[Rfam]
RNA sequence: GCAUCUAGCAAGAACUUGGCACUGUGAUCUGUGUGGAAGUAGCCGUCCGUUUUUUAGCAUCACAUCACAGUCUGAGUUCUUGCUGGACGG
Numbered sequence: 001g002c003a004u005c006u007a008g009c010a011a012g013a014a015c016u017u018g019g020c021a022c023u024g025u026g027a028u029c030u031g032u033g034u035g036g037a038a039g040u041a042g043c044c045g046u047c048c049g050u051u052u053u054u055u056a057g058c059a060u061c062a063c064a065u066c067a068c069a070g071u072c073u074g075a076g077u078u079c080u081u082g083c084u085g086g087a088c089g090g
Stems, first nucleotide, its partner, number of pairs: 004087003009082009022070006031063003